[Rfam]
RNA sequence: ACCUGACAGACCUAUCGGAGGUCUGACACUUGCCACGACAGGAGCACAAAAUG
Numbered sequence: 001a002c003c004u005g006a007c008a009g010a011c012c013u014a015u016c017g018g019a020g021g022u023c024u025g026a027c028a029c030u031u032g033c034c035a036c037g038a039c040a041g042g043a044g045c046a047c048a049a050a051a052u053g
Base pairs, nucleotide, nucleotide: 002042003041004040005039007025008024009023010022011021
The family of this 53-nucleotide RNA is "Mu-gpT-DE RNA". The sequence is in the family's curated seed alignment. The family's RNA type in Rfam is small RNA.